Overview:
Rfam assigns this 71-nucleotide RNA sequence from Alkalibaculum sporogenes to the family "tRNA". The organism belongs to Alkalibaculum, within Bacteria. It is annotated as a transfer RNA. Its family is annotated with triplet codon-amino acid adaptor activity in the Gene Ontology. The family's consensus secondary structure is taken from published work.
RNA sequence: GGCGGCAUAGCCAAGUGGUAAGGCACAGGUCUGCAACACCUUCAUCCCCAGUUCAAAUCUGGGUGCCGCCU
Numbered sequence: 001g002g003c004g005g006c007a008u009a010g011c012c013a014a015g016u017g018g019u020a021a022g023g024c025a026c027a028g029g030u031c032u033g034c035a036a037c038a039c040c041u042u043c044a045u046c047c048c049c050a051g052u053u054c055a056a057a058u059c060u061g062g063g064u065g066c067c068g069c070c071u
Base pairs, nucleotide, nucleotide: 001070002069003068004067005066006065007064010024011023012022027041028040029039030038047063048062049061050060051059